[Rfam]
RNA sequence: GGCCAGUGAUGCAAGAAAAUAUUUGCUACUCUUGAUGAAGAACGACACGUUGUUCUUCAACUGAUGAUUGGUUAACCACCAAGAUCUCUGAGGCC
Numbered sequence: 001g002g003c004c005a006g007u008g009a010u011g012c013a014a015g016a017a018a019a020u021a022u023u024u025g026c027u028a029c030u031c032u033u034g035a036u037g038a039a040g041a042a043c044g045a046c047a048c049g050u051u052g053u054u055c056u057u058c059a060a061c062u063g064a065u066g067a068u069u070g071g072u073u074a075a076c077c078a079c080c081a082a083g084a085u086c087u088c089u090g091a092g093g094c095c
Stems, first nucleotide, its partner, number of pairs: 001095004
RNA: Small nucleolar RNA SNORD24